[Rfam]
RNA sequence: AAAAUGCCGUGAUGAAUAAUGAAAUCUACAACACAUGUCAAACUUCGGAGGUGCCAUUUAUUUGGCAUUGAUGAUAUGAUGUUUCAUAUCCUGAGCUUUUA
Numbered sequence: 001a002a003a004a005u006g007c008c009g010u011g012a013u014g015a016a017u018a019a020u021g022a023a024a025u026c027u028a029c030a031a032c033a034c035a036u037g038u039c040a041a042a043c044u045u046c047g048g049a050g051g052u053g054c055c056a057u058u059u060a061u062u063u064g065g066c067a068u069u070g071a072u073g074a075u076a077u078g079a080u081g082u083u084u085c086a087u088a089u090c091c092u093g094a095g096c097u098u099u100u101a
Stems, first nucleotide, its partner, number of pairs: 002100003006096002050069007